Rfam assigns this 74-nucleotide RNA from Merluccius polli to the family "mir-30 microRNA precursor family". The match comes from Rfam's covariance-model search (60 bits). From the family's description: This family consists of the mammalian microRNA (miRNA) precursor mir-30a. The family has 175 seed sequences and 3,879 matches in Rfam 15.1. Taxonomically the source falls in Merluccius (Eukaryota, Euteleostomi, Ctenosquamata, Paracanthopterygii).
RNA sequence: UCCUGGAGUGUAAACAUCCUACACUCUCAGCUGUGUCCUGAAGGAGCUGGGAGAAGGGUGUUUAUUCUUCUGGU
Numbered sequence: 001u002c003c004u005g006g007a008g009u010g011u012a013a014a015c016a017u018c019c020u021a022c023a024c025u026c027u028c029a030g031c032u033g034u035g036u037c038c039u040g041a042a043g044g045a046g047c048u049g050g051g052a053g054a055a056g057g058g059u060g061u062u063u064a065u066u067c068u069u070c071u072g073g074u
Base pairs, nucleotide, nucleotide: 002073003072005070006069008067010065011064012063013062014061015060016059017058018057019056020055024053025052026051027050028049029048030047031046032045